Background:
The family of this 46-nucleotide RNA sequence from Caulifigura coniformis is "Acido-Lenti-1 RNA". It is annotated as a small RNA.
RNA sequence: CCGUGAGCUGACGCUCACGGCUAAAUCGUGCCGCCCCUGCGGGGCU
Numbered sequence: 001c002c003g004u005g006a007g008c009u010g011a012c013g014c015u016c017a018c019g020g021c022u023a024a025a026u027c028g029u030g031c032c033g034c035c036c037c038u039g040c041g042g043g044g045c046u
Stems, first nucleotide, its partner, number of pairs: 001020008033045005
Notes: A search with the family's covariance model found it, with a score of 48 bits. The base pairs follow the family's consensus structure, which is taken from published work.